Xanthomonadaceae sRNA sX13: a 115-nucleotide RNA from Arenimonas oryziterrae. NCBI's taxonomy places the organism under Bacteria, Pseudomonadati, Lysobacterales, Arenimonas, Arenimonas oryziterrae. The base pairs follow the family's consensus structure, which was predicted with CMfinder. By type it is a small RNA.
[Rfam]
RNA sequence: AACGUCCGUCGUGGAUCAACUCCCUCCCCUGAGUGUGAUCCCGAAGGAACCGACUUUCCCCAGUCGGUUCCAACCCCCGGCCCCGCAAGCUUCCCCUGGCUUGCGGGGCUUUUUA
Numbered sequence: 001a002a003c004g005u006c007c008g009u010c011g012u013g014g015a016u017c018a019a020c021u022c023c024c025u026c027c028c029c030u031g032a033g034u035g036u037g038a039u040c041c042c043g044a045a046g047g048a049a050c051c052g053a054c055u056u057u058c059c060c061c062a063g064u065c066g067g068u069u070c071c072a073a074c075c076c077c078c079g080g081c082c083c084c085g086c087a088a089g090c091u092u093c094c095c096c097u098g099g100c101u102u103g104c105g106g107g108g109c110u111u112u113u114u115a
Stems, first nucleotide, its partner, number of pairs: 004012001006011001013041006019034004043074001046071009079110008088101004